Source information: The record is a 600-nucleotide part of an RNA from Entamoeba invadens, which matches "Eukaryotic small subunit ribosomal RNA" in Rfam. The organism belongs to Entamoeba, within Eukaryota. Rfam's curators put it in the seed alignment.
RNA sequence: CAGGAGUGGAGCCUGCGGCUUAAUUUGACUCAACACGGGAAAACUUACCAAGACCGAACAUUAGAGGGAUUGACAGAUUUAGGGUUCUUUCAAGAUUUAAAGAGGAGUGGUGCAUGGCCGUUCUUAGUUCGUGGACUGGUUUGUCUGGUUAAUUCCGAUAACGAACGAGACUGAAACCUAUUAAUUAGUAUAUCUUUGACAGGGGAUAUCAUGCGAAAGCAUAUUAGGAAUUAAAUUUCUUAGAGGGACAACUUUUAGAUAGUCCUCCCAGCGGUAUAUGAGUACUAACCGUACUUUUUAUUUCUGGAGGGAUUAAUGAAAGGGAAGCGUUCAGCAAUAACAGGUCUGUGAUGCCCUUAGACAUCUUGGGCCGCACGCGCGCUACAAUGGAAGAAGAAAAGAGUUUAGUCAAGGAAUUAUUUCAUUUGGUUCUGCCAAGUGGAGUGAUUUCUAAAAAAUGGACACAAGAAUUUUUGACUAGCCGAUAUUUAAAAACGGAGGAAAACUCAAAACUUUGGACAUGUUCUGGGAUAGAUGAUUGUAAUUAUUUGUCUUUAACCAGGAAUUCCUUGUAAUACCAUGUCAUUAGCAUGGGAUGAA
Numbered sequence: 001c002a003g004g005a006g007u008g009g010a011g012c013c014u015g016c017g018g019c020u021u022a023a024u025u026u027g028a029c030u031c032a033a034c035a036c037g038g039g040a041a042a043a044c045u046u047a048c049c050a051a052g053a054c055c056g057a058a059c060a061u062u063a064g065a066g067g068g069a070u071u072g073a074c075a076g077a078u079u080u081a082g083g084g085u086u087c088u089u090u091c092a093a094g095a096u097u098u099a100a101a102g103a104g105g106a107g108u109g110g111u112g113c114a115u116g117g118c119c120g121u122u123c124u125u126a127g128u129u130c131g132u133g134g135a136c137u138g139g140u141u142u143g144u145c146u147g148g149u150u151a152a153u154u155c156c157g158a159u160a161a162c163g164a165a166c167g168a169g170a171c172u173g174a175a176a177c178c179u180a181u182u183a184a185u186u187a188g189u190a191u192a193u194c195u196u197u198g199a200c201a202g203g204g205g206a207u208a209u210c211a212u213g214c215g216a217a218a219g220c221a222u223a224u225u226a227g228g229a230a231u232u233a234a235a236u237u238u239c240u241u242a243g244a245g246g247g248a249c250a251a252c253u254u255u256u257a258g259a260u261a262g263u264c265c266u267c268c269c270a271g272c273g274g275u276a277u278a279u280g281a282g283u284a285c286u287a288a289c290c291g292u293a294c295u296u297u298u299u300a301u302u303u304c305u306g307g308a309g310g311g312a313u314u315a316a317u318g319a320a321a322g323g324g325a326a327g328c329g330u331u332c333a334g335c336a337a338u339a340a341c342a343g344g345u346c347u348g349u350g351a352u353g354c355c356c357u358u359a360g361a362c363a364u365c366u367u368g369g370g371c372c373g374c375a376c377g378c379g380c381g382c383u384a385c386a387a388u389g390g391a392a393g394a395a396g397a398a399a400a401g402a403g404u405u406u407a408g409u410c411a412a413g414g415a416a417u418u419a420u421u422u423c424a425u426u427u428g429g430u431u432c433u434g435c436c437a438a439g440u441g442g443a444g445u446g447a448u449u450u451c452u453a454a455a456a457a458a459u460g461g462a463c464a465c466a467a468g469a470a471u472u473u474u475u476g477a478c479u480a481g482c483c484g485a486u487a488u489u490u491a492a493a494a495a496c497g498g499a500g501g502a503a504a505a506c507u508c509a510a511a512a513c514u515u516u517g518g519a520c521a522u523g524u525u526c527u528g529g530g531a532u533a534g535a536u537g538a539u540u541g542u543a544a545u546u547a548u549u550u551g552u553c554u555u556u557a558a559c560c561a562g563g564a565a566u567u568c569c570u571u572g573u574a575a576u577a578c579c580a581u582g583u584c585a586u587u588a589g590c591a592u593g594g595g596a597u598g599a600a
Stems, first nucleotide, its partner, number of pairs: 003569005008385001010383003014379004018374002024039004048369006059102001061100003072091002075088003106357002109355004115351001116349001117345003120341003127166006133142003146157003172333004177246003181243004187237003249324001252322006389520001393516003401508003482501002486497001488495002528559001533554006575597002578594005